[Rfam]
RNA sequence: UGUGAAAGUCCCGGAUGGCGGCGAUAUAGAUGGGCGCGCGAGCGCGCACAGAUAUACCAGCAUCAGACGGGCAAGACGGUAUGAGAAAGUAGGGCGAUAGCCCGGAUUUCGAAUACCGUCGGCAGAUGGCUGGCCCAGUUCCGGGGCGGGCGUGACAAUCGCAUAUACAUUUUGUUUCACA
Numbered sequence: 001u002g003u004g005a006a007a008g009u010c011c012c013g014g015a016u017g018g019c020g021g022c023g024a025u026a027u028a029g030a031u032g033g034g035c036g037c038g039c040g041a042g043c044g045c046g047c048a049c050a051g052a053u054a055u056a057c058c059a060g061c062a063u064c065a066g067a068c069g070g071g072c073a074a075g076a077c078g079g080u081a082u083g084a085g086a087a088a089g090u091a092g093g094g095c096g097a098u099a100g101c102c103c104g105g106a107u108u109u110c111g112a113a114u115a116c117c118g119u120c121g122g123c124a125g126a127u128g129g130c131u132g133g134c135c136c137a138g139u140u141c142c143g144g145g146g147c148g149g150g151c152g153u154g155a156c157a158a159u160c161g162c163a164u165a166u167a168c169a170u171u172u173u174g175u176u177u178c179a180c181a
Stems, first nucleotide, its partner, number of pairs: 001181006010071004017064002020061001023058001025056004031050002034047005075120008085110004092103004124172005
Dot-bracket structure: ((((((...((((...((.(..(.((((..((.(((((....))))).))..)))).)..).))...))))...((((((((..((((...((((....))))...))))..))))))))...(((((.......................................)))))...))))))

The family of this 181-nucleotide RNA from Lachnoclostridium sp. An14 is "Clostridiales-1 RNA".
It is annotated as a small RNA.
It scores 65 bits against the family's covariance model.
The family's consensus secondary structure is taken from published work.
The source organism's lineage runs through Bacteria, Bacillota, Clostridia, Lachnospiraceae and Lachnoclostridium.